[Rfam]
The family of this 72-nucleotide sequence from Pipistrellus kuhlii is "Small nucleolar RNA SNORD59". The organism belongs to Pipistrellus, within Eukaryota. Its family is annotated with RNA processing and nucleolus in the Gene Ontology. The family's RNA type in Rfam is C/D-box small nucleolar RNA. Its Rfam clan is "SNORD59 clan". The match comes from Rfam's covariance-model search (88 bits).

RNA sequence: UCCUCACUGAUGAAUAGCUUCUGACUUUCGUUCUUCUGAGUUUGCUGAAGCCAGAUGCCAUUUCUGAGAGGG
Numbered sequence: 001u002c003c004u005c006a007c008u009g010a011u012g013a014a015u016a017g018c019u020u021c022u023g024a025c026u027u028u029c030g031u032u033c034u035u036c037u038g039a040g041u042u043u044g045c046u047g048a049a050g051c052c053a054g055a056u057g058c059c060a061u062u063u064c065u066g067a068g069a070g071g072g
Base pairs, nucleotide, nucleotide: 001072002071003070005068